Rfam assigns this 81-nucleotide sequence from Panurus biarmicus to the family "Small nucleolar RNA SNORD72". The base pairs follow the family's consensus structure. The organism belongs to Panurus, within Eukaryota. It is annotated as a C/D-box small nucleolar RNA.
RNA sequence: AGUUUGUGAAUUAUGUUUCUUAGGAAAAAUCUCUGAACAUAUGAACUCCAUAGCAAUUUCAGUGCAUUACUGAGAGAAGCU
Dot-bracket structure: .((((.(...................................................................).)))).

Description
A reference for the family is Huttenhofer et al. (2001), "RNomics: an experimental approach that identifies 201 candidates for novel, small, non-messenger RNAs in mouse", EMBO J. A search with the family's covariance model found it, with a score of 53 bits. Rfam describes the family as follows. snoRNA HBII-240 belongs to the CD family of snoRNAs. It is the human orthologue of the mouse MBII-240 and is predicted to guide 2'O-ribose methylation of the large 28S rRNA at residue U4590.